Shown here is a 55-nucleotide RNA sequence, a member of the family "pemK RNA". Rfam classes the family as a cis-regulatory element. The base pairs follow the family's consensus structure, which is taken from published work.
RNA sequence: ACAAUGAUACUUCUCGAAAGAGCUGGGCGGAAGCGCAGGGGUGAAACUCCCAUGG
Numbered sequence: 001a002c003a004a005u006g007a008u009a010c011u012u013c014u015c016g017a018a019a020g021a022g023c024u025g026g027g028c029g030g031a032a033g034c035g036c037a038g039g040g041g042u043g044a045a046a047c048u049c050c051c052a053u054g055g
Stems, first nucleotide, its partner, number of pairs: 012052001013022003023038003027034002039051003